[Rfam]
The record is a 174-nucleotide sequence from Roseicyclus elongatus, which matches "Ruegeria cis52 sRNA" in Rfam. The source organism's lineage runs through Bacteria, Pseudomonadati, Alphaproteobacteria, Roseobacteraceae and Roseicyclus elongatus. By type it is a small RNA. It scores 130 bits against the family's covariance model. A reference for the family is Rivers et al. (2016), "Experimental Identification of Small Non-Coding RNAs in the Model Marine Bacterium Ruegeria pomeroyi DSS-3", Front Microbiol.
RNA sequence: UCCUGAGCGCAUGUUUCAGCACGAUGUUGCGAAAGCUCACGCCCUUCAGCCGGGCGGUGCGGAUGUAUUGGGCGGUCAUCACCUCGGCCAUCGAGGCACGCGUCAUCCGCGCGAUGUAGCCCAUGCCGUAAAGGGCGAUGGUCAUCACCGGCAGGGUGAAGUUCCAGAAGGUUA
Numbered sequence: 001u002c003c004u005g006a007g008c009g010c011a012u013g014u015u016u017c018a019g020c021a022c023g024a025u026g027u028u029g030c031g032a033a034a035g036c037u038c039a040c041g042c043c044c045u046u047c048a049g050c051c052g053g054g055c056g057g058u059g060c061g062g063a064u065g066u067a068u069u070g071g072g073c074g075g076u077c078a079u080c081a082c083c084u085c086g087g088c089c090a091u092c093g094a095g096g097c098a099c100g101c102g103u104c105a106u107c108c109g110c111g112c113g114a115u116g117u118a119g120c121c122c123a124u125g126c127c128g129u130a131a132a133g134g135g136c137g138a139u140g141g142u143c144a145u146c147a148c149c150g151g152c153a154g155g156g157u158g159a160a161g162u163u164c165c166a167g168a169a170g171g172u173u174a
Stems, first nucleotide, its partner, number of pairs: 004141001006139001008137003012133001014131002016128001019126003028123002031120001038113001040111003046105001048103001051100002054097001055075001057073002060070003082096005150173003154165003